RNA sequence: AUUAUUAUCACCAUUCCUGGAAUGGUGGGUUAGCGCGCGUCCUCAGAUCAGUUACCGCAAAACCCGCCCUGAGGCGGGUUUU
Numbered sequence: 001a002u003u004a005u006u007a008u009c010a011c012c013a014u015u016c017c018u019g020g021a022a023u024g025g026u027g028g029g030u031u032a033g034c035g036c037g038c039g040u041c042c043u044c045a046g047a048u049c050a051g052u053u054a055c056c057g058c059a060a061a062a063c064c065c066g067c068c069c070u071g072a073g074g075c076g077g078g079u080u081u082u
Base pairs, nucleotide, nucleotide: 008028009027010026011025012024013023014022060081061080062079063078064077065076066075067074068073
RNA: Pseudomonas sRNA P9